[Rfam]
RNA sequence: AAGUUCUCAUUGGGGUGCGUGAUAUAUCACGCUGAGAAAUACCCAUAGAACCUGAUCUGACUAAUAUCAGCGUAGGGAUUUGAGACAGACAAUUUC
Numbered sequence: 001a002a003g004u005u006c007u008c009a010u011u012g013g014g015g016u017g018c019g020u021g022a023u024a025u026a027u028c029a030c031g032c033u034g035a036g037a038a039a040u041a042c043c044c045a046u047a048g049a050a051c052c053u054g055a056u057c058u059g060a061c062u063a064a065u066a067u068c069a070g071c072g073u074a075g076g077g078a079u080u081u082g083a084g085a086c087a088g089a090c091a092a093u094u095u096c
Stems, first nucleotide, its partner, number of pairs: 006084004011045004016039001017032005051076004057070004